[Rfam]
RNA sequence: UGGCGUCAGUGAUGUCUCUACCUACAUUGUUUGAUAUCUACUUGAGAAAAGCUUUGUUUUCUGAGACGCCU
Numbered sequence: 001u002g003g004c005g006u007c008a009g010u011g012a013u014g015u016c017u018c019u020a021c022c023u024a025c026a027u028u029g030u031u032u033g034a035u036a037u038c039u040a041c042u043u044g045a046g047a048a049a050a051g052c053u054u055u056g057u058u059u060u061c062u063g064a065g066a067c068g069c070c071u
Base pairs, nucleotide, nucleotide: 002070004068005067006066007065
RNA: Small nucleolar RNA SNORD34